A member of the RNA family "Small nucleolar RNA R66" from Jatropha curcas, 77 nucleotides long. About the family: snoR66 is a C/D box small nucleolar RNA, which acts as a methylation guide for 18S ribosomal RNA in plants. snoR66 has been alternatively named snoZ269 in rice. The match comes from Rfam's covariance-model search (44 bits). On this family, see Chen et al., Nucleic Acids Res 2003: "The high diversity of snoRNAs in plants: identification and comparative study of 120 snoRNA genes from Oryza sativa". By type it is a C/D-box small nucleolar RNA. The family has 6 seed sequences and 584 matches in Rfam 15.1.
[Rfam]
Nucleotides: 077
Stems, first nucleotide, its partner, number of pairs: 001076003032046001033043001
Number, partner (000 for none) and nucleotide at each position: 001076u002075u003074c004000a005000c006000u007000u008000u009000a010000g011000u012000a013000a014000u015000u016000g017000a018000u019000u020000c021000u022000u023000u024000g025000a026000g027000a028000c029000a030000u031000g032046a033043u034000a035000u036000a037000a038000c039000a040000c041000u042000a043033a044000c045000u046032u047000g048000a049000a050000g051000a052000a053000a054000a055000u056000u057000a058000c059000a060000a061000g062000u063000a064000u065000a066000a067000u068000u069000c070000a071000u072000g073000a074003g075002g076001a077000c